[Rfam]
Nucleotides: 184
Stems, first nucleotide, its partner, number of pairs: 003181013018167002036154002041150006063131003067127001069125002072122001075120004080115001086110002091106005
Number, partner (000 for none) and nucleotide at each position: 001000c002000u003181u004180g005179g006178a007177c008176u009175a010174c011173u012172c013171a014170g015169u016000u017000g018167g019166u020000g021000a022000g023000a024000g025000c026000c027000u028000u029000u030000u031000u032000c033000u034000a035000g036154u037153g038000c039000u040000c041150u042149g043148a044147u045146c046145u047000g048000a049000c050000u051000c052000u053000c054000u055000u056000u057000c058000g059000a060000c061000u062000u063131g064130g065129g066000g067127c068000a069125a070124c071000u072122g073000u074000c075120g076119u077118g078117a079000u080115g081000g082000u083000g084000c085000c086110g087109u088000a089000g090000a091106c092105c093104g094103g095102c096000c097000u098000c099000g100000u101000a102095g103094c104093c105092g106091g107000a108000a109087a110086c111000g112000a113000a114000g115080c116000c117078u118077c119076a120075c121000u122072u123000u124070g125069u126000c127067g128000c129065c130064c131063c132000u133000u134000c135000u136000g137000g138000u139000a140000a141000c142000u143000c144000c145046a146045g147044g148043u149042c150041g151000a152000a153037c154036a155000c156000u157000g158000g159000g160000g161000c162000u163000u164000g165000c166019a167018c168000g169015g170014c171013u172012g173011g174010g175009u176008g177007g178006u179005u180004c181003a182000c183000c184000c
The family of this 184-nucleotide RNA from Synechococcus sp. WH 7805 is "6S / SsrS RNA". The family's RNA type in Rfam is non-coding RNA gene. The source organism's lineage runs through Bacteria, Bacillati, Synechococcales, Synechococcaceae and Synechococcus.